Shown here is a 97-nucleotide RNA from Neomonachus schauinslandi, a member of the family "mir-544 microRNA precursor family". Pairs were carried over by alignment from the consensus structure, which was predicted with RNAalifold. For this family Rfam cites "Mammalian microRNAs: experimental evaluation of novel and previously annotated genes" (Chiang et al., Genes Dev, 2010).
[Rfam]
RNA sequence: UUCACCUGGGGAUCUUGUUAAAAUGCAGAUUCUGCCUCAGUAGGUCCAAGCUGGGUCAGAGAGUCUGCACUUUUAACAAGUUUCCAGGUGAUAUCAA
Numbered sequence: 001u002u003c004a005c006c007u008g009g010g011g012a013u014c015u016u017g018u019u020a021a022a023a024u025g026c027a028g029a030u031u032c033u034g035c036c037u038c039a040g041u042a043g044g045u046c047c048a049a050g051c052u053g054g055g056u057c058a059g060a061g062a063g064u065c066u067g068c069a070c071u072u073u074u075a076a077c078a079a080g081u082u083u084c085c086a087g088g089u090g091a092u093a094u095c096a097a
Stems, first nucleotide, its partner, number of pairs: 003090003009084003014080007021072002025068005031062003